Shown here is a 67-nucleotide sequence from Amphibacillus marinus, a member of the family "Bacillaceae-1 RNA". Rfam classes the family as a small RNA. The organism belongs to Amphibacillus, within Bacteria.

[Rfam]
RNA sequence: UAAGAAGGGUUACAGACUAAGACCGCCACGUCGUGUGGCAACGUCUGUAUGACCUACAUCCUGUAGG
Numbered sequence: 001u002a003a004g005a006a007g008g009g010u011u012a013c014a015g016a017c018u019a020a021g022a023c024c025g026c027c028a029c030g031u032c033g034u035g036u037g038g039c040a041a042c043g044u045c046u047g048u049a050u051g052a053c054c055u056a057c058a059u060c061c062u063g064u065a066g067g
Stems, first nucleotide, its partner, number of pairs: 011049007025039005053067005

A search with the family's covariance model found it, with a score of 76 bits.